[Rfam]
RNA: CyaR/Rye RNA
Organism: Sodalis ligni
RNA sequence: UUGCUGAAACCAAACGGAUAAUAACGACCCAGCUACACCAGGAACCACCUCUUUCGCCAGCUCAUCCUCCCUUGAGCUGGCUUUUUA
Numbered sequence: 001u002u003g004c005u006g007a008a009a010c011c012a013a014a015c016g017g018a019u020a021a022u023a024a025c026g027a028c029c030c031a032g033c034u035a036c037a038c039c040a041g042g043a044a045c046c047a048c049c050u051c052u053u054u055c056g057c058c059a060g061c062u063c064a065u066c067c068u069c070c071c072u073u074g075a076g077c078u079g080g081c082u083u084u085u086u087a
Stems, first nucleotide, its partner, number of pairs: 040053004056081009